[Rfam]
RNA sequence: UACGCGGCUAGGGCGACGGCCCGAAAACCAGUUCCAUCCACCGGCUCGCCGCGUUUCUUCUUGGGUGG
Numbered sequence: 001u002a003c004g005c006g007g008c009u010a011g012g013g014c015g016a017c018g019g020c021c022c023g024a025a026a027a028c029c030a031g032u033u034c035c036a037u038c039c040a041c042c043g044g045c046u047c048g049c050c051g052c053g054u055u056u057c058u059u060c061u062u063g064g065g066u067g068g
Stems, first nucleotide, its partner, number of pairs: 002054007011022004028044002031041002034068005
Rfam assigns this 68-nucleotide sequence from Symmachiella dynata to the family "int-alpA RNA". A search with the family's covariance model found it, with a score of 43 bits. Acidobacteria (1 example), Planctomycetes (1 example), Proteobacteria.